[Rfam]
RNA sequence: ACAUAUCUCUAGUUUGUGCGUGAAUCGAACCCCAUCUUGGCCGUUCAUUUUUACGGCCCAUCCAAUGGUGUUAGAUUCACGCAUAAACUCGAAAUCUGUCU
Numbered sequence: 001a002c003a004u005a006u007c008u009c010u011a012g013u014u015u016g017u018g019c020g021u022g023a024a025u026c027g028a029a030c031c032c033c034a035u036c037u038u039g040g041c042c043g044u045u046c047a048u049u050u051u052u053a054c055g056g057c058c059c060a061u062c063c064a065a066u067g068g069u070g071u072u073a074g075a076u077u078c079a080c081g082c083a084u085a086a087a088c089u090c091g092a093a094a095u096c097u098g099u100c101u
Stems, first nucleotide, its partner, number of pairs: 001099003005095002011089016028072003032068002043058001045056001
Shown here is a 101-nucleotide RNA from Jatropha curcas, a member of the family "MIR403 microRNA precursor family". The literature on the family includes a 2009 paper in BMC Genomics by Mica et al., "High throughput approaches reveal splicing of primary microRNA transcripts and tissue specific expression of mature microRNAs in Vitis vinifera". It scores 93 bits against the family's covariance model. Its family is annotated with miRNA-mediated post-transcriptional gene silencing and RISC complex in the Gene Ontology. The family's consensus secondary structure was predicted with WAR.